A member of the RNA family "Nuclear RNase P" from Cloeon dipterum, 295 nucleotides long.
It is annotated as a ribozyme.
Its family is annotated with tRNA processing, ribonuclease P complex and ribonuclease P activity in the Gene Ontology.
RNA sequence: GCAGACGGAAGCUCGCAGUUAGGGGCGAACGUGGCCGCUCAGCGGCCAUUACCCCUGGGAAGGUCUGAGUGAUGGCCAGUCAUAAUGCUCGAGAAGGGCAUCCCCUCAAAAGGGAGCGGGGGACUAGAAAGCCACUGGUUGGGGGCCUCUGUCUGGGAUCCCGGGAGUGCUUGGCUCCUGGGGGAGGCGCAGCCUUUGCAGCCAGGUGAAAACUCCCGUGGCCAGCCGUUUAAGUUCAAUUUGCGAGGCAGUCUCAUCUGAGGCUGUAACCCAAUUCAGACUACUCUCCGUCUGU
Dot-bracket structure: ((((..(((..(((((((..(((((......((((((.....))))))...)))))........[[[[[....((((........(((((.....)))))((((.......))))(((((((............(((.................................................................))).......))))))))))).................)))))))(((((((......))))))).......]]]]].......)))..))))